Shown here is a 110-nucleotide RNA from Mesobacillus campisalis, a member of the family "SAM riboswitch aptamer (S box leader)". It scores 91 bits against the family's covariance model. The family's consensus secondary structure is taken from published work.
RNA sequence: UUCUUAUCAAGAGAGGUCGAGGGUAUGGCCCGAUGACGCCUCAGCAACCAUCAAUGUCCGCAUUGAAAAGGUGCUAAGUCCAGCAAGUUGUCCAACUUGGCAGAUAAGAA
Numbered sequence: 001u002u003c004u005u006a007u008c009a010a011g012a013g014a015g016g017u018c019g020a021g022g023g024u025a026u027g028g029c030c031c032g033a034u035g036a037c038g039c040c041u042c043a044g045c046a047a048c049c050a051u052c053a054a055u056g057u058c059c060g061c062a063u064u065g066a067a068a069a070g071g072u073g074c075u076a077a078g079u080c081c082a083g084c085a086a087g088u089u090g091u092c093c094a095a096c097u098u099g100g101c102a103g104a105u106a107a108g109a110a
Stems, first nucleotide, its partner, number of pairs: 001110008013042005021031003026082003043075004048071002051066003079102001084099006
Dot-bracket structure: ((((((((....(((((...(((..[[[)))......)))))((((.((.(((..........)))...))))))...(]]].((((((....))))))..)))))))))